The family of this 76-nucleotide RNA from Vombatus ursinus is "mir-190 microRNA precursor family". The organism belongs to Vombatus, within Eukaryota.
[Rfam]
RNA sequence: GCUUCUGUGUGAUAUGUUUGAUAUUAGGUUGUUUGAUAGCGAAUCAACUAAAUGUCAAACAUAUUCUUACAGCGGU
Numbered sequence: 001g002c003u004u005c006u007g008u009g010u011g012a013u014a015u016g017u018u019u020g021a022u023a024u025u026a027g028g029u030u031g032u033u034u035g036a037u038a039g040c041g042a043a044u045c046a047a048c049u050a051a052a053u054g055u056c057a058a059a060c061a062u063a064u065u066c067u068u069a070c071a072g073c074g075g076u
Base pairs, nucleotide, nucleotide: 005072006071007070008069009068011065012064013063014062015061016060017059018058019057020056021055022054023053024052025051027049028048029047030046031045
Dot-bracket structure: ....(((((.(((((((((((((((.(((((.............))))).)))))))))))))))..)))))....

Rfam links the family to the GO terms miRNA-mediated post-transcriptional gene silencing and RISC complex.